[Rfam]
RNA: Fumarate/nitrate reductase regulator sRNA
Organism: Xenorhabdus japonica
RNA sequence: GCAGGUGAAUACAACGUUGAGCGAUGAACGUUGUACUCCAUAAUUGUAGUUUUUCUCACAUUGAGUUUUAACAGAAUAAUUGCUCAUUGAUUAUGCCGAUGCUUGUUUUAGUAUCGGCUAUU
Numbered sequence: 001g002c003a004g005g006u007g008a009a010u011a012c013a014a015c016g017u018u019g020a021g022c023g024a025u026g027a028a029c030g031u032u033g034u035a036c037u038c039c040a041u042a043a044u045u046g047u048a049g050u051u052u053u054u055c056u057c058a059c060a061u062u063g064a065g066u067u068u069u070a071a072c073a074g075a076a077u078a079a080u081u082g083c084u085c086a087u088u089g090a091u092u093a094u095g096c097c098g099a100u101g102c103u104u105g106u107u108u109u110a111g112u113a114u115c116g117g118c119u120a121u122u
Stems, first nucleotide, its partner, number of pairs: 001047004007038002010035009063085004068076002095118008